The record is an 88-nucleotide RNA from Zostera marina, which matches "small nucleolar RNA snoR117" in Rfam.
A reference for the family is Chen and Wu (2009), "Mining small RNA sequencing data: a new approach to identify small nucleolar RNAs in Arabidopsis", Nucleic Acids Res.
Its family is annotated with RNA processing and nucleolus in the Gene Ontology.
Pairs were carried over by alignment from the consensus structure, which was predicted with RNAalifold.
The match comes from Rfam's covariance-model search (50 bits).
It is annotated as a C/D-box small nucleolar RNA.
Taxonomically the source falls in Zostera (Eukaryota, Viridiplantae, Embryophyta, Euphyllophyta).

[Rfam]
RNA sequence: AGCCUGUGAUGUUCUGAUUGUCCGUACCAUCUGAGUUCCGCGAUAACUUCAAAGACGCUGAUGAGUUGUAUCAAUUUUUCUGAGGUUU
Numbered sequence: 001a002g003c004c005u006g007u008g009a010u011g012u013u014c015u016g017a018u019u020g021u022c023c024g025u026a027c028c029a030u031c032u033g034a035g036u037u038c039c040g041c042g043a044u045a046a047c048u049u050c051a052a053a054g055a056c057g058c059u060g061a062u063g064a065g066u067u068g069u070a071u072c073a074a075u076u077u078u079u080c081u082g083a084g085g086u087u088u
Stems, first nucleotide, its partner, number of pairs: 001087004